[Rfam]
RNA sequence: ACCGUCCUUGUUAAAGGUGGAAGCAACUGUUCAAUGAUCGUUUAGUGAGAGCAGUUCGUGCUAAAACCACAAUAUGCAAAACCCGCACCGAGCAUUCAUACUUUGAUUGCUUUCGGGUGCAAUUUUUGAAGCC
Numbered sequence: 001a002c003c004g005u006c007c008u009u010g011u012u013a014a015a016g017g018u019g020g021a022a023g024c025a026a027c028u029g030u031u032c033a034a035u036g037a038u039c040g041u042u043u044a045g046u047g048a049g050a051g052c053a054g055u056u057c058g059u060g061c062u063a064a065a066a067c068c069a070c071a072a073u074a075u076g077c078a079a080a081a082c083c084c085g086c087a088c089c090g091a092g093c094a095u096u097c098a099u100a101c102u103u104u105g106a107u108u109g110c111u112u113u114c115g116g117g118u119g120c121a122a123u124u125u126u127u128g129a130a131g132c133c
Stems, first nucleotide, its partner, number of pairs: 005019001007017003020061001022059001026055007039045001085120005090114001092110003096106002
RNA: U4atac minor spliceosomal RNA
Organism: Dinothrombium tinctorium